[Rfam]
RNA sequence: GGAUCAAGUGAUGAGAAAACUGCAACAAUAUGCUGGAGAUACCUCUCCAUGAUUCCUCGUAUUUGAGUUUCCCAUGGUA
Numbered sequence: 001g002g003a004u005c006a007a008g009u010g011a012u013g014a015g016a017a018a019a020c021u022g023c024a025a026c027a028a029u030a031u032g033c034u035g036g037a038g039a040u041a042c043c044u045c046u047c048c049a050u051g052a053u054u055c056c057u058c059g060u061a062u063u064u065g066a067g068u069u070u071c072c073c074a075u076g077g078u079a
Stems, first nucleotide, its partner, number of pairs: 004079001005076002035048005